[Rfam]
RNA sequence: GCUUAAGGUAGAGGUGCGGCAUUCAUAAGUACGCUGUAUGAUAUUUCAGGGAUAGGUGAUUACAGCGGAAAGGGGAUGCUGCCGAAGCAAUAAUAAUCCUGAGUUAUUAUUGCUGGGCAUAUGGUGAAUAACCAUAUGACUGUCAUCAGUUUUAUUGAUGGAGCGCUACCUAAAGA
Numbered sequence: 001g002c003u004u005a006a007g008g009u010a011g012a013g014g015u016g017c018g019g020c021a022u023u024c025a026u027a028a029g030u031a032c033g034c035u036g037u038a039u040g041a042u043a044u045u046u047c048a049g050g051g052a053u054a055g056g057u058g059a060u061u062a063c064a065g066c067g068g069a070a071a072g073g074g075g076a077u078g079c080u081g082c083c084g085a086a087g088c089a090a091u092a093a094u095a096a097u098c099c100u101g102a103g104u105u106a107u108u109a110u111u112g113c114u115g116g117g118c119a120u121a122u123g124g125u126g127a128a129u130a131a132c133c134a135u136a137u138g139a140c141u142g143u144c145a146u147c148a149g150u151u152u153u154a155u156u157g158a159u160g161g162a163g164c165g166c167u168a169c170c171u172a173a174a175g176a
Stems, first nucleotide, its partner, number of pairs: 006171006016082009032067007086114012115141002118138008143161007
RNA: Lysine riboswitch aptamer
Organism: Herbinix hemicellulosilytica